RNA sequence: AGCCUAUGAUGGUUUCAGUGAAAGAGUAGUGGACAGAAGUGAUUUCUGAAGACUCCAUGCUGAGGCU
Numbered sequence: 001a002g003c004c005u006a007u008g009a010u011g012g013u014u015u016c017a018g019u020g021a022a023a024g025a026g027u028a029g030u031g032g033a034c035a036g037a038a039g040u041g042a043u044u045u046c047u048g049a050a051g052a053c054u055c056c057a058u059g060c061u062g063a064g065g066c067u
Stems, first nucleotide, its partner, number of pairs: 001067004
The family of this 67-nucleotide sequence from Rhipidura dahli is "Small nucleolar RNA SNORD75".
A search with the family's covariance model found it, with a score of 60 bits.
Lineage of the source: Eukaryota > Vertebrata > Archelosauria > Neoaves > Rhipidura.
Rfam classes the family as a C/D-box small nucleolar RNA.